This 79-nucleotide RNA belongs to the Rfam family "Clostridiales-2 RNA".
RNA sequence: AUAAACUAGAGUGUGCAGAGGGGGAACCCAUUGCCGUAGUAAGGGGGGUGCUCAGACGCAUAGCGUCGUCGAAAGGGGG
Number, nucleotide and partner (000 for none) at each position: 001a000002u000003a000004a000005a000006c000007u000008a000009g000010a000011g000012u000013g000014u000015g034016c033017a032018g031019a000020g029021g028022g027023g000024g000025a000026a000027c022028c021029c020030a000031u018032u017033g016034c015035c000036g000037u000038a000039g000040u000041a000042a000043g000044g000045g000046g000047g000048g000049u000050g000051c000052u000053c000054a000055g067056a066057c065058g064059c000060a000061u000062a000063g000064c058065g057066u056067c055068g000069u000070c000071g000072a000073a000074a000075g000076g000077g000078g000079g000

Description
The family's RNA type in Rfam is small RNA. The family's consensus secondary structure is taken from published work.